Shown here is a 146-nucleotide sequence from Oryctolagus cuniculus, a member of the family "Small nucleolar RNA SNORA12". Rfam links the family to the GO terms RNA processing and nucleolus. On this family, see Gu et al., Nucleic Acids Res 2005: "A novel experimental approach for systematic identification of box H/ACA snoRNAs from eukaryotes". Rfam's curators write: U108 belongs to the H/ACA family of snoRNAs. The sequence is predicted to guide the pseudouridylation of the U372 residue in the 28S rRNA subunit. Taxonomically the source falls in Oryctolagus (Eukaryota, Craniata, Vertebrata, Eutheria). It is annotated as an H/ACA-box small nucleolar RNA.

RNA sequence: AUUUGUGGUGGUUUUCUCUUUGGUCCAUUUGUUAAGUUUUCAAAUGGGCCUGACUCGGCCACAUACAUUAUAAAGGAUCUGGCAAAGGCUUGAUGACAGAGAUUUCUGUUGAGCCUAUCCUGCAUCACAGCUUGGCUCCCACAUGC
Numbered sequence: 001a002u003u004u005g006u007g008g009u010g011g012u013u014u015u016c017u018c019u020u021u022g023g024u025c026c027a028u029u030u031g032u033u034a035a036g037u038u039u040u041c042a043a044a045u046g047g048g049c050c051u052g053a054c055u056c057g058g059c060c061a062c063a064u065a066c067a068u069u070a071u072a073a074a075g076g077a078u079c080u081g082g083c084a085a086a087g088g089c090u091u092g093a094u095g096a097c098a099g100a101g102a103u104u105u106c107u108g109u110u111g112a113g114c115c116u117a118u119c120c121u122g123c124a125u126c127a128c129a130g131c132u133u134g135g136c137u138c139c140c141a142c143a144u145g146c
Stems, first nucleotide, its partner, number of pairs: 005062005011056001022050003026046006075139003079135002081090003106130004